[Rfam]
RNA: Metazoan signal recognition particle RNA
RNA sequence: GCCAUCCAGGUUGUGCAUGUCUGUAGUCCCAGCUGCUGAGGAGGCUGAGCUUGGCAGCUUGCUUGAGCCCAGGAGUCCUGGGCUGCAGAGCUCUGUGCUGGGUGGGUGUCCAAGCUAAGGCCACCAUCAGUAUGGUGACUUGCAGGAAGCUGCGGGAUACCUGGUUGACUAAGGAGGGAUGAAGCGGCCCAGGUUGGCGAUGGGGCAGGUAAAAGCUCCUGUGGCAGUCAGUAGUGGGACCAUGCCUGUGCACAGUCCCUGCAGUGUAGCCUGGGCAACACAGACAGGUUCCU
Numbered sequence: 001g002c003c004a005u006c007c008a009g010g011u012u013g014u015g016c017a018u019g020u021c022u023g024u025a026g027u028c029c030c031a032g033c034u035g036c037u038g039a040g041g042a043g044g045c046u047g048a049g050c051u052u053g054g055c056a057g058c059u060u061g062c063u064u065g066a067g068c069c070c071a072g073g074a075g076u077c078c079u080g081g082g083c084u085g086c087a088g089a090g091c092u093c094u095g096u097g098c099u100g101g102g103u104g105g106g107u108g109u110c111c112a113a114g115c116u117a118a119g120g121c122c123a124c125c126a127u128c129a130g131u132a133u134g135g136u137g138a139c140u141u142g143c144a145g146g147a148a149g150c151u152g153c154g155g156g157a158u159a160c161c162u163g164g165u166u167g168a169c170u171a172a173g174g175a176g177g178g179a180u181g182a183a184g185c186g187g188c189c190c191a192g193g194u195u196g197g198c199g200a201u202g203g204g205g206c207a208g209g210u211a212a213a214a215g216c217u218c219c220u221g222u223g224g225c226a227g228u229c230a231g232u233a234g235u236g237g238g239a240c241c242a243u244g245c246c247u248g249u250g251c252a253c254a255g256u257c258c259c260u261g262c263a264g265u266g267u268a269g270c271c272u273g274g275g276c277a278a279c280a281c282a283g284a285c286a287g288g289u290u291c292c293u
Base pairs, nucleotide, nucleotide: 001045002044003043004022007019008018010016011015027042028041029040053292054291056289058288059287060286061285062283063282067276068275069274070273071272072271073270078269079268080267082265083264084263085262086261087260088259090257093255094254095253096252097251098250102249103248104247105246106245107244108243109242110238111237114235115234116233117232119229120228121227124224125223126222127221128167129166130165131164134161135160136159137158139156140155141154142153143152144151145150169173175220176219177218178217180215187210188209189208194203195202196201